RNA: mir-137 microRNA precursor family
RNA sequence: GGAGGUCACGCGUAUUCUUGGGGAAUUAACACACAUUAUGAGAUGUUAUUGCUUGAGAAUACACGUAGCUGAC
Numbered sequence: 001g002g003a004g005g006u007c008a009c010g011c012g013u014a015u016u017c018u019u020g021g022g023g024a025a026u027u028a029a030c031a032c033a034c035a036u037u038a039u040g041a042g043a044u045g046u047u048a049u050u051g052c053u054u055g056a057g058a059a060u061a062c063a064c065g066u067a068g069c070u071g072a073c
Stems, first nucleotide, its partner, number of pairs: 001073001004070002008066003012062011025050001027048005032042001